This 125-nucleotide RNA sequence from Fictibacillus arsenicus belongs to the Rfam family "SAM riboswitch aptamer (S box leader)".
The source organism's lineage runs through Bacteria, Bacillota, Caryophanales, Fictibacillaceae and Fictibacillus.
The SAM riboswitch is found upstream of a number of genes which code for proteins involved in methionine or cysteine biosynthesis in Gram-positive bacteria. The SAM riboswitch acts at the level of transcription termination control. The predicted structure consists of a complex stem-loop region followed by a single stem loop terminator region. An alternative and mutually exclusive form involves bases in the 3' segment of helix 1 with those in the 5' region of helix 5 to form a structure termed the anti-terminator form.
RNA sequence: AACUUAUCACGAGAGGUGGAGGGACUGGCCCUAUGAAACCCGGCAACCGCUAGCUGUAUGUAAUCCAUACUGACUAGAAAGGUGCCAAUUCCUGCAAGGCAUUCAAUUGUCUUGGGAGAUGAGGA
Numbered sequence: 001a002a003c004u005u006a007u008c009a010c011g012a013g014a015g016g017u018g019g020a021g022g023g024a025c026u027g028g029c030c031c032u033a034u035g036a037a038a039c040c041c042g043g044c045a046a047c048c049g050c051u052a053g054c055u056g057u058a059u060g061u062a063a064u065c066c067a068u069a070c071u072g073a074c075u076a077g078a079a080a081g082g083u084g085c086c087a088a089u090u091c092c093u094g095c096a097a098g099g100c101a102u103u104c105a106a107u108u109g110u111c112u113u114g115g116g117a118g119a120u121g122a123g124g125a
Stems, first nucleotide, its partner, number of pairs: 003123006013041001015040003021031003025094001027092002042086004047082002050077003090117001095114006